[Rfam]
RNA sequence: GGGUCCUUGCAUUCGCCCGGCACCGAGUGACCGUAUUGACCGUUACGCCCACUUACGGGGUGGUUUCGUGAUGCACCCCGUACCCGGAGGU
Numbered sequence: 001g002g003g004u005c006c007u008u009g010c011a012u013u014c015g016c017c018c019g020g021c022a023c024c025g026a027g028u029g030a031c032c033g034u035a036u037u038g039a040c041c042g043u044u045a046c047g048c049c050c051a052c053u054u055a056c057g058g059g060g061u062g063g064u065u066u067c068g069u070g071a072u073g074c075a076c077c078c079c080g081u082a083c084c085c086g087g088a089g090g091u
Stems, first nucleotide, its partner, number of pairs: 026053004032047004037042001057079005065071001
NLPC-P60 RNA: a 91-nucleotide sequence. The match comes from Rfam's covariance-model search (55 bits).